[Rfam]
RNA sequence: GAGGCCGAUGCGGGAGAGCUGCGGGGGAGAACCCGCCCGCGGCACCGAAGGAGCAAUCCUCCCCGACAAUCUCUCAGGUACGCGUACCGCAUCGGACUG
Numbered sequence: 001g002a003g004g005c006c007g008a009u010g011c012g013g014g015a016g017a018g019c020u021g022c023g024g025g026g027g028a029g030a031a032c033c034c035g036c037c038c039g040c041g042g043c044a045c046c047g048a049a050g051g052a053g054c055a056a057u058c059c060u061c062c063c064c065g066a067c068a069a070u071c072u073c074u075c076a077g078g079u080a081c082g083c084g085u086a087c088c089g090c091a092u093c094g095g096a097c098u099g
Base pairs, nucleotide, nucleotide: 006094007093008092009091010090011089012088013087020041021040022039023038024037025036044079045078046077047075048074051073052072053071057066058065
Glycine riboswitch aptamer: a 99-nucleotide RNA sequence from Leifsonia xyli. About the family: This family represents the bacterial glycine riboswitch. Glycine riboswitches usually consist of two metabolite-binding aptamers domains with similar structures in tandem. The aptamers cooperatively bind glycine to regulate the expression of downstream genes. Rfam links the family to the GO term glycine biosynthetic process.